Shown here is a 133-nucleotide RNA sequence from Illadopsis cleaveri, a member of the family "Small nucleolar RNA SNORA3/SNORA45 family". Rfam describes the family as follows. The members of this family belong to the H/ACA class of snoRNAs which are thought to guide the sites of modification of uridines to pseudouridines. This family includes mouse snoMBI-28 and human homologues ACA3 (SNORA3) and ACA3-2 (SNORA45). It is annotated as an H/ACA-box small nucleolar RNA. The organism belongs to Illadopsis, within Eukaryota.
[Rfam]
RNA sequence: CUCGAGACUAGAGUCACAUCUCCACAUGUCUGGUUGUCUAGGUGUGCUAUAGUUCUCGGACAGAAACAUCUGAUCCAUAUUCACUGGCUGGGAUGUCCUGUGUCUCAGCCAGGGAGGUGGGGCUGGACACUGC
Numbered sequence: 001c002u003c004g005a006g007a008c009u010a011g012a013g014u015c016a017c018a019u020c021u022c023c024a025c026a027u028g029u030c031u032g033g034u035u036g037u038c039u040a041g042g043u044g045u046g047c048u049a050u051a052g053u054u055c056u057c058g059g060a061c062a063g064a065a066a067c068a069u070c071u072g073a074u075c076c077a078u079a080u081u082c083a084c085u086g087g088c089u090g091g092g093a094u095g096u097c098c099u100g101u102g103u104c105u106c107a108g109c110c111a112g113g114g115a116g117g118u119g120g121g122g123c124u125g126g127a128c129a130c131u132g133c
Base pairs, nucleotide, nucleotide: 002059003058004057005056006055007053008052009051012048013047015046016045017044018043019042020041024037025036026035070125072123074121075120076119078116082114084112085111086110087109089107090106091105092104093103094102